[Rfam]
This 108-nucleotide sequence from Halosaccharopolyspora lacisalsi belongs to the Rfam family "TPP riboswitch aptamer (THI element)". The base pairs follow the family's consensus structure, which is taken from published work. NCBI's taxonomy places the organism under Bacteria, Bacillati, Actinomycetes, Pseudonocardiales, Halosaccharopolyspora.
RNA sequence: UCUGAUCGCCACGGGAGUCCGGUGCGCCGGGCUGAGAGGAGGGCCGCGACCCUCGACCGUCCACCUGAACCGGGUCAUGCCGGCGCAGGGAGGCGCCAACGAUCAGCU
Numbered sequence: 001u002c003u004g005a006u007c008g009c010c011a012c013g014g015g016a017g018u019c020c021g022g023u024g025c026g027c028c029g030g031g032c033u034g035a036g037a038g039g040a041g042g043g044c045c046g047c048g049a050c051c052c053u054c055g056a057c058c059g060u061c062c063a064c065c066u067g068a069a070c071c072g073g074g075u076c077a078u079g080c081c082g083g084c085g086c087a088g089g090g091a092g093g094c095g096c097c098a099a100c101g102a103u104c105a106g107c108u
Base pairs, nucleotide, nucleotide: 007095008094009093010092011060012059013058014057017032018031019030020029021028039054040053041052042051043050064089065088066087067086070083071082072081073080